ASdes TB sRNA: a 68-nucleotide RNA from Nocardia uniformis. For this family Rfam cites "Identification of small RNAs in Mycobacterium tuberculosis" (Arnvig and Young, Mol Microbiol, 2009). The base pairs follow the family's consensus structure, which is taken from published work. A search with the family's covariance model found it, with a score of 77 bits.

RNA sequence: AGGGCCACCGGGUCGACGCUCCGGGUGACCACGAGGUAGUCGCGCAUGGCGAUGCCGUGGCGGUUCUC
Numbered sequence: 001a002g003g004g005c006c007a008c009c010g011g012g013u014c015g016a017c018g019c020u021c022c023g024g025g026u027g028a029c030c031a032c033g034a035g036g037u038a039g040u041c042g043c044g045c046a047u048g049g050c051g052a053u054g055c056c057g058u059g060g061c062g063g064u065u066c067u068c
Stems, first nucleotide, its partner, number of pairs: 005062001008059001011030003016026002035056004040052004
Dot-bracket structure: ....(..(..(((..((.......)).)))....((((.((((.....))))))))..)..)......